This 68-nucleotide sequence from Carlito syrichta belongs to the Rfam family "Small nucleolar RNA SNORD56".
It scores 71 bits against the family's covariance model.
Pairs were carried over by alignment from the consensus structure, which was predicted with PFOLD.
It is annotated as a C/D-box small nucleolar RNA.
Gene Ontology terms of the family: RNA processing and nucleolus.
RNA sequence: UCACAAUGAUGGCAGUACUUAUCAGCAGCAGUUCACCUUGUGAGUGUUGGUACUUUGAGUCUGAGUGA
Dot-bracket structure: .(((...((((........)))).........................................))).